[Rfam]
A member of the RNA family "U4 spliceosomal RNA" from Megalops atlanticus, 139 nucleotides long.
Rfam's curators write: U4 small nuclear RNA (U4 snRNA) is a component of the major U2-dependent spliceosome.
The family's consensus secondary structure is taken from published work.
Clan: U4 clan.
By type it is a spliceosomal small nuclear RNA.
RNA sequence: AUCCUUGCGCAGUGGCAGUAUCGUAGCCUAUGAGGUUUAUCCGAGGCGCGAUUAUUGCUGGUUGAAAACUUAACCCAAUACCCGCCAAAGCGACUUGAAAUACAGUCAGCUUUGGCAAUUUUUGAUAGUCUCGUUGAGA
Numbered sequence: 001a002u003c004c005u006u007g008c009g010c011a012g013u014g015g016c017a018g019u020a021u022c023g024u025a026g027c028c029u030a031u032g033a034g035g036u037u038u039a040u041c042c043g044a045g046g047c048g049c050g051a052u053u054a055u056u057g058c059u060g061g062u063u064g065a066a067a068a069c070u071u072a073a074c075c076c077a078a079u080a081c082c083c084g085c086c087a088a089a090g091c092g093a094c095u096u097g098a099a100a101u102a103c104a105g106u107c108a109g110c111u112u113u114g115g116c117a118a119u120u121u122u123u124g125a126u127a128g129u130c131u132c133g134u135u136g137a138g139a
Stems, first nucleotide, its partner, number of pairs: 020052005026047003034042002084116003087112002092107004129139004